[Rfam]
RNA: L13-Bacteroidia ribosomal protein leader
RNA sequence: GAGGGUACACUUAGAGCCCUCGGUCUGGGAGUGUUAAUAGCUGUGCUUUUGGCCGGGCAUGGUGGUUAGUGAAUC
Numbered sequence: 001g002a003g004g005g006u007a008c009a010c011u012u013a014g015a016g017c018c019c020u021c022g023g024u025c026u027g028g029g030a031g032u033g034u035u036a037a038u039a040g041c042u043g044u045g046c047u048u049u050u051g052g053c054c055g056g057g058c059a060u061g062g063u064g065g066u067u068a069g070u071g072a073a074u075c
Stems, first nucleotide, its partner, number of pairs: 001021006034069005040063009